[Rfam]
RNA sequence: AGAACUUGUGUCUGUUUCUGUCUAACUUACAGACUAAGAUGUAUGGACAAGGAUAAAAAGGAAAUCCUCUUUUGUAACCCAGAAUUCAUUGCUCAACAUGAGUUGUGUACAGAUGAGAAGGAUGAUU
Numbered sequence: 001a002g003a004a005c006u007u008g009u010g011u012c013u014g015u016u017u018c019u020g021u022c023u024a025a026c027u028u029a030c031a032g033a034c035u036a037a038g039a040u041g042u043a044u045g046g047a048c049a050a051g052g053a054u055a056a057a058a059a060g061g062a063a064a065u066c067c068u069c070u071u072u073u074g075u076a077a078c079c080c081a082g083a084a085u086u087c088a089u090u091g092c093u094c095a096a097c098a099u100g101a102g103u104u105g106u107g108u109a110c111a112g113a114u115g116a117g118a119a120g121g122a123u124g125a126u127u
Stems, first nucleotide, its partner, number of pairs: 002054001005051005011045001014040004020034002067121002070118005080107002083104007